A member of the RNA family "Fluoride riboswitch aptamer (crcB RNA motif)" from Actinomycetospora sp. TBRC 11914, 65 nucleotides long.
RNA sequence: UCGACACCAGGUGAUGGAGCUCACCUCCAACCGCGGGCACCUCCGCUGAUGGCUCCUGAUCGGCU
Numbered sequence: 001u002c003g004a005c006a007c008c009a010g011g012u013g014a015u016g017g018a019g020c021u022c023a024c025c026u027c028c029a030a031c032c033g034c035g036g037g038c039a040c041c042u043c044c045g046c047u048g049a050u051g052g053c054u055c056c057u058g059a060u061c062g063g064c065u
Base pairs, nucleotide, nucleotide: 010025011024012023013022016056017055018054019053020052021051033046034045035044036043
The match comes from Rfam's covariance-model search (47 bits).
The source organism's lineage runs through Bacteria, Bacillati, Pseudonocardiales, Pseudonocardiaceae and Actinomycetospora.